This 81-nucleotide sequence from Hippoglossus hippoglossus belongs to the Rfam family "mir-147 microRNA precursor family". Rfam links the family to the GO terms miRNA-mediated post-transcriptional gene silencing and RISC complex. The base pairs follow the family's consensus structure, which was predicted with RNAalifold.
RNA sequence: CAUCAGUCGAACAGAAUCCUUUCUGCACAAACUAGGAUGCUUUGUCACUCAGUGUGCGGAAACGCUUCUGCUCCACUGGUG
Numbered sequence: 001c002a003u004c005a006g007u008c009g010a011a012c013a014g015a016a017u018c019c020u021u022u023c024u025g026c027a028c029a030a031a032c033u034a035g036g037a038u039g040c041u042u043u044g045u046c047a048c049u050c051a052g053u054g055u056g057c058g059g060a061a062a063c064g065c066u067u068c069u070g071c072u073c074c075a076c077u078g079g080u081g
Base pairs, nucleotide, nucleotide: 001081002080004078005077006076007075009073010072012070013069014068015067016066018064020062021061022060023059024058025057026056027055028054029053032052033051